[Rfam]
RNA sequence: AAUAUCUGGCUGGGGUGCCGCUUCGUUCUUGAGCGGCUGAGAUCAUACCCAUCGAACCUGUUCGGAUCAUGCCGACGAAGGGAGCCCCUUGACGACAUCA
Numbered sequence: 001a002a003u004a005u006c007u008g009g010c011u012g013g014g015g016u017g018c019c020g021c022u023u024c025g026u027u028c029u030u031g032a033g034c035g036g037c038u039g040a041g042a043u044c045a046u047a048c049c050c051a052u053c054g055a056a057c058c059u060g061u062u063c064g065g066a067u068c069a070u071g072c073c074g075a076c077g078a079a080g081g082g083a084g085c086c087c088c089u090u091g092a093c094g095a096c097a098u099c100a
Base pairs, nucleotide, nucleotide: 008086009085010084011051012050013049014048016045017037018036019035020034021033022032023031057081058080059079062075063074064073065072
RNA: TPP riboswitch aptamer (THI element)
Organism: Skermanella aerolata